[Rfam]
RNA sequence: GUUGCAAGUUCAAGGCCACGGCAGAAGCGGUCCCAGCGUGGCCCUGUCAGAUUCCAGCGAAUCUACAAAUUCGGCU
Numbered sequence: 001g002u003u004g005c006a007a008g009u010u011c012a013a014g015g016c017c018a019c020g021g022c023a024g025a026a027g028c029g030g031u032c033c034c035a036g037c038g039u040g041g042c043c044c045u046g047u048c049a050g051a052u053u054c055c056a057g058c059g060a061a062u063c064u065a066c067a068a069a070u071u072c073g074g075c076u
Stems, first nucleotide, its partner, number of pairs: 014043004020076003024072003027039003049064006
Dot-bracket structure: .............[[[[..(((.((((((.......)))]]]].....((((((....)))))).....))).)))
A member of the RNA family "Mammalian CPEB3 ribozyme" from Alligator mississippiensis, 76 nucleotides long. Taxonomically the source falls in Alligator (Eukaryota, Sarcopterygii, Tetrapoda, Crocodylia). The family's consensus secondary structure is taken from published work.